[Rfam]
RNA sequence: GCCCAAAUGGUGGAAUUGGUAGACACGCUAGUUUCAGGGACUAGUGGCCGUAAGGUUGUGGGGGUUCGAGUCCCCCUUUGGGUA
Numbered sequence: 001g002c003c004c005a006a007a008u009g010g011u012g013g014a015a016u017u018g019g020u021a022g023a024c025a026c027g028c029u030a031g032u033u034u035c036a037g038g039g040a041c042u043a044g045u046g047g048c049c050g051u052a053a054g055g056u057u058g059u060g061g062g063g064g065u066u067c068g069a070g071u072c073c074c075c076c077u078u079u080g081g082g083u084a
Stems, first nucleotide, its partner, number of pairs: 001083007010026003028044005060076005